[Rfam]
RNA sequence: UGUAAACAUCCUUGACUGGAAGCUGGUGCACAUGAUGGAGCUUUCAGUCGGAUGUUUGCAGC
Number, nucleotide and partner (000 for none) at each position: 001u060002g059003u058004a057005a056006a055007c054008a053009u052010c051011c050012u000013u000014g000015a048016c047017u046018g045019g044020a043021a042022g041023c040024u039025g000026g000027u000028g000029c000030a000031c000032a000033u000034g000035a000036u000037g000038g000039a024040g023041c022042u021043u020044u019045c018046a017047g016048u015049c000050g011051g010052a009053u008054g007055u006056u005057u004058g003059c002060a001061g000062c000
A member of the RNA family "mir-30 microRNA precursor family" from Ictalurus punctatus, 62 nucleotides long. On this family, see Lagos-Quintana et al., Science 2001: "Identification of novel genes coding for small expressed RNAs". Rfam 15.1 lists 3,879 matches to the family in 647 species. It is one of the family's seed sequences. Pairs were carried over by alignment from the consensus structure, which was predicted with PFOLD.